[Rfam]
RNA sequence: CUCUUCCAGGUCUGUGGUUGCGGAGGCACCGAUCUGCCUCCUAGUCCAUGACAGACGAGGUCAAAGGGAUCCACGUAAGCCAGCGUGUGGGCAUGCUGGCGAUCAUGGCUCGUCCUGAAGCAAGUCGCACUGCCUGAUCGGCUUUGGGGCAAAGAGCCCCACAGGCAAGAGGGCUUUGAUGGGGGUGCCUGAGCAUCCGAAGCGGAGGCCCCGGUGCGCGGGUGUGGGGCCAAAGACCAGGUCAGCUGGAAGAG
Numbered sequence: 001c002u003c004u005u006c007c008a009g010g011u012c013u014g015u016g017g018u019u020g021c022g023g024a025g026g027c028a029c030c031g032a033u034c035u036g037c038c039u040c041c042u043a044g045u046c047c048a049u050g051a052c053a054g055a056c057g058a059g060g061u062c063a064a065a066g067g068g069a070u071c072c073a074c075g076u077a078a079g080c081c082a083g084c085g086u087g088u089g090g091g092c093a094u095g096c097u098g099g100c101g102a103u104c105a106u107g108g109c110u111c112g113u114c115c116u117g118a119a120g121c122a123a124g125u126c127g128c129a130c131u132g133c134c135u136g137a138u139c140g141g142c143u144u145u146g147g148g149g150c151a152a153a154g155a156g157c158c159c160c161a162c163a164g165g166c167a168a169g170a171g172g173g174c175u176u177u178g179a180u181g182g183g184g185g186u187g188c189c190u191g192a193g194c195a196u197c198c199g200a201a202g203c204g205g206a207g208g209c210c211c212c213g214g215u216g217c218g219c220g221g222g223u224g225u226g227g228g229g230c231c232a233a234a235g236a237c238c239a240g241g242u243c244a245g246c247u248g249g250a251a252g253a254g
Stems, first nucleotide, its partner, number of pairs: 001254009012245003015239005048225003051061001054114006070108002075103001080098001106232001126218005131167005171211004180202001186195003